This 132-nucleotide sequence from Labeo rohita belongs to the Rfam family "U4atac minor spliceosomal RNA". U4atac is an essential component of the minor U12-type spliceosome complex which is required for removal of the rarer class of eukaryotic introns (AT-AC, U12-type). Taxonomically the source falls in Labeo (Eukaryota, Chordata, Euteleostomi, Clupeocephala). It is annotated as a spliceosomal small nuclear RNA. A search with the family's covariance model found it, with a score of 83 bits.

Nucleotides: 132
Stems, first nucleotide, its partner, number of pairs: 006018004021061001023060001025058001027056001029054005039047002084119006090110002093107004
Number, partner (000 for none) and nucleotide at each position: 001000a002000c003000c004000u005000u006018c007017c008016u009015u010000g011000u012000c013000u014000g015009g016008g017007g018006g019000u020000g021061g022000a023060u024000u025058g026000g027056g028000c029054u030053g031052u032051u033050c034000a035000a036000u037000g038000a039047a040046c041000g042000u043000c044000u045000a046040g047039u048000g049000a050033g051032a052031a053030c054029a055000u056027c057000c058025c059000u060023g061021c062000u063000a064000a065000c066000a067000c068000c069000u070000u071000a072000c073000c074000a075000a076000c077000a078000c079000c080000a081000c082000c083000c084119g085118c086117a087116u088115c089114a090110c091109c092000u093107g094106a095105a096104c097000u098000a099000u100000c101000u102000a103000u104096g105095u106094u107093u108000a109091g110090g111000c112000u113000a114089u115088g116087g117086u118085g119084c120000a121000a122000u123000u124000u125000u126000g127000g128000g129000g130000g131000c132000a
Rfam links the family to the GO terms mRNA 5'-splice site recognition, spliceosomal tri-snRNP complex assembly and pre-mRNA 5'-splice site binding. Its Rfam clan is "U4 clan". On this family, see Lorkovic et al., RNA 2005: "Evolutionary conservation of minor U12-type spliceosome between plants and humans".